[Rfam]
The record is a 130-nucleotide RNA sequence from Mytilus edulis, which matches "U4atac minor spliceosomal RNA" in Rfam.
The family has 61 seed sequences and 1,648 matches in Rfam 15.1.
Taxonomically the source falls in Mytilus (Eukaryota, Protostomia, Mollusca, Mytilinae).
The family's RNA type in Rfam is spliceosomal small nuclear RNA.
U4atac is an essential component of the minor U12-type spliceosome complex which is required for removal of the rarer class of eukaryotic introns (AT-AC, U12-type).
Its family is annotated with U4atac snRNP, mRNA 5'-splice site recognition and spliceosomal tri-snRNP complex assembly in the Gene Ontology.

RNA sequence: ACCGUCUUUAUCUGGGGUUGCGAGCUUACUCAGUGAUCGUUUAGUGAGAGUAAGACUGCUAUCACCAAUAGAUUAAACAAUACCGCACCGCUUGGAUGUAUUUCUGGGUCUGGGUGCAAUUUAUGGAACC
Numbered sequence: 001a002c003c004g005u006c007u008u009u010a011u012c013u014g015g016g017g018u019u020g021c022g023a024g025c026u027u028a029c030u031c032a033g034u035g036a037u038c039g040u041u042u043a044g045u046g047a048g049a050g051u052a053a054g055a056c057u058g059c060u061a062u063c064a065c066c067a068a069u070a071g072a073u074u075a076a077a078c079a080a081u082a083c084c085g086c087a088c089c090g091c092u093u094g095g096a097u098g099u100a101u102u103u104c105u106g107g108g109u110c111u112g113g114g115u116g117c118a119a120u121u122u123a124u125g126g127a128a129c130c
Stems, first nucleotide, its partner, number of pairs: 007017003020059003025054007038044001085117005091108006
Dot-bracket structure: ......(((.....)))..(((..(((((((......(.....)...)))))))..))).........................(((((.((((((......))))))....))))).............